[Rfam]
RNA sequence: CAAUUGGCGCACGGAUCGCUGUCGUUGACAGCUCCAGCCCAGAUAGCCAGAACCUUUAAGGCUAUGCCACUUGCGUGGUGGUUCUCCCAAAGUGCGAUUAGCAUCCGGCGGCUCGCACGGUCACUCCCCAAGAGUGAUGGAUGC
Number, nucleotide and partner (000 for none) at each position: 001c000002a000003a000004u000005u000006g000007g000008c000009g000010c000011a000012c000013g035014g034015a033016u000017c000018g032019c031020u030021g029022u028023c027024g000025u000026u000027g023028a022029c021030a020031g019032c018033u015034c014035c013036a000037g000038c000039c000040c000041a000042g000043a065044u064045a063046g062047c061048c060049a000050g000051a083052a082053c081054c080055u000056u000057u000058a000059a000060g048061g047062c046063u045064a044065u043066g079067c078068c077069a076070c075071u000072u000073g000074c000075g070076u069077g068078g067079u066080g054081g053082u052083u051084c000085u000086c000087c000088c000089a000090a000091a000092g000093u000094g000095c000096g000097a000098u000099u000100a000101g000102c000103a000104u000105c000106c000107g000108g000109c000110g000111g000112c000113u000114c143115g142116c000117a000118c000119g000120g138121u137122c136123a135124c134125u133126c132127c000128c000129c000130a000131a000132g126133a125134g124135u123136g122137a121138u120139g000140g000141a000142u115143g114144c000